mir-33 microRNA precursor family: a 74-nucleotide sequence from Carassius auratus.
A reference for the family is Li et al. (2009), "Direct sequencing and expression analysis of a large number of miRNAs in Aedes aegypti and a multi-species survey of novel mosquito miRNAs", BMC Genomics.
The family's consensus secondary structure was predicted with PFOLD.
The match comes from Rfam's covariance-model search (51 bits).
RNA sequence: UUUAAGUGCACUUUAGUUGCAUUACAUACACAAUUAUGAUUUUUUUUAUGUAAUGCAACUAAAGUGCACUUAAA
Numbered sequence: 001u002u003u004a005a006g007u008g009c010a011c012u013u014u015a016g017u018u019g020c021a022u023u024a025c026a027u028a029c030a031c032a033a034u035u036a037u038g039a040u041u042u043u044u045u046u047u048a049u050g051u052a053a054u055g056c057a058a059c060u061a062a063a064g065u066g067c068a069c070u071u072a073a074a
Stems, first nucleotide, its partner, number of pairs: 001074004006070001007068010019056001021054007